[Rfam]
RNA sequence: UCCGGGGGAAGCUCACUGCCGAGGUCACGUGCUGAGUGCUUCAUCACUCCUGACCACGCCUCGGGGAAGGUCUGAGGGAAGGGCCAUCCGCGGCUCUAGCAGAGCUCUGCCCGCGAAGGGGCGGGUGAGCCACCAGCAAGGGGGGGCGCCGCGCAGGGCUCAGAUGGGCAGGAGAAACCGAGCAGGGUGACGCGGCGCUGGGCAACACCCACCCGCGGAACCCCGGUGGAUGCUCGUGGUCCCGCGGUGCUUUGAGACAGACUCACGGCCAGCGAUUGAGUCCAAUGGGUGAGGUGGGGCACGGGCUCCAUAACCCAAUUCAGACUACUCUCCCCCGGA
Numbered sequence: 001u002c003c004g005g006g007g008g009a010a011g012c013u014c015a016c017u018g019c020c021g022a023g024g025u026c027a028c029g030u031g032c033u034g035a036g037u038g039c040u041u042c043a044u045c046a047c048u049c050c051u052g053a054c055c056a057c058g059c060c061u062c063g064g065g066g067a068a069g070g071u072c073u074g075a076g077g078g079a080a081g082g083g084c085c086a087u088c089c090g091c092g093g094c095u096c097u098a099g100c101a102g103a104g105c106u107c108u109g110c111c112c113g114c115g116a117a118g119g120g121g122c123g124g125g126u127g128a129g130c131c132a133c134c135a136g137c138a139a140g141g142g143g144g145g146g147c148g149c150c151g152c153g154c155a156g157g158g159c160u161c162a163g164a165u166g167g168g169c170a171g172g173a174g175a176a177a178c179c180g181a182g183c184a185g186g187g188u189g190a191c192g193c194g195g196c197g198c199u200g201g202g203c204a205a206c207a208c209c210c211a212c213c214c215g216c217g218g219a220a221c222c223c224c225g226g227u228g229g230a231u232g233c234u235c236g237u238g239g240u241c242c243c244g245c246g247g248u249g250c251u252u253u254g255a256g257a258c259a260g261a262c263u264c265a266c267g268g269c270c271a272g273c274g275a276u277u278g279a280g281u282c283c284a285a286u287g288g289g290u291g292a293g294g295u296g297g298g299g300c301a302c303g304g305g306c307u308c309c310a311u312a313a314c315c316c317a318a319u320u321c322a323g324a325c326u327a328c329u330c331u332c333c334c335c336c337g338g339a
Stems, first nucleotide, its partner, number of pairs: 001339004007333003012293006020063005034049005072323005082270004092106005107124006125266005131260001145251009294311007
The family of this 339-nucleotide sequence from Bucco capensis is "Nuclear RNase P". By type it is a ribozyme. Ribonuclease P (RNase P) is a ubiquitous endoribonuclease, found in archaea, bacteria and eukarya as well as chloroplasts and mitochondria. The literature on the family includes a 2002 paper in Annu Rev Biochem by Xiao et al., "Eukaryotic Ribonuclease P: A Plurality of Ribonucleoprotein Enzymes".